[Rfam]
RNA sequence: CCAAAAUUAGCCACUUGUCAUUUUCUAAUUGGUUUUAGAAAAAAUUUAAUACACUAAAAACCAAUUAAAAAAUGACAAGUGGCUAGUUUUGG
Number, nucleotide and partner (000 for none) at each position: 001c000002c091003a090004a089005a088006a087007u086008u085009a084010g083011c082012c081013a080014c079015u078016u077017g076018u075019c074020a073021u072022u071023u070024u069025c000026u067027a066028a065029u064030u063031g062032g061033u060034u059035u058036u057037a000038g055039a000040a000041a000042a000043a000044a000045u000046u000047u000048a000049a000050u000051a000052c000053a000054c000055u038056a000057a036058a035059a034060a033061c032062c031063a030064a029065u028066u027067a026068a000069a024070a023071a022072a021073u020074g019075a018076c017077a016078a015079g014080u013081g012082g011083c010084u009085a008086g007087u006088u005089u004090u003091g002092g000